The record is a 136-nucleotide RNA sequence from Bombilactobacillus apium, which matches "FMN riboswitch aptamer (RFN element)" in Rfam. The match comes from Rfam's covariance-model search (92 bits). For this family Rfam cites "An mRNA structure that controls gene expression by binding FMN" (Winkler et al., Proc Natl Acad Sci U S A, 2002). Lineage of the source: Bacteria > Bacillati > Bacillota > Bacilli > Bombilactobacillus. From the family's description: The RFN element is a highly conserved domain that is found frequently in the 5'-untranslated regions of prokaryotic mRNAs that encode for flavin mononucleotide (FMN) biosynthesis and transport proteins.

[Rfam]
RNA sequence: AGAUUUCUUCGAGGCAGGAUGAAAUUUCCGACCGAUGGUGACUGCAAUAGCAGAAGUCCAUAACCCGCGUUUAGCGGUGGACCCAGUGCGAGUCUGGGACCGACAGUAAAGUCUGGCUGGAUGGGAGAAGAAUCAA
Numbered sequence: 001a002g003a004u005u006u007c008u009u010c011g012a013g014g015c016a017g018g019a020u021g022a023a024a025u026u027u028c029c030g031a032c033c034g035a036u037g038g039u040g041a042c043u044g045c046a047a048u049a050g051c052a053g054a055a056g057u058c059c060a061u062a063a064c065c066c067g068c069g070u071u072u073a074g075c076g077g078u079g080g081a082c083c084c085a086g087u088g089c090g091a092g093u094c095u096g097g098g099a100c101c102g103a104c105a106g107u108a109a110a111g112u113c114u115g116g117c118u119g120g121a122u123g124g125g126a127g128a129a130g131a132a133u134c135a136a
Base pairs, nucleotide, nucleotide: 005132006131007130008129009128010127017029018028019027031112032111033102034101035061036060037059038058056100057099065077066076082098083097084096085095086094104119105118106117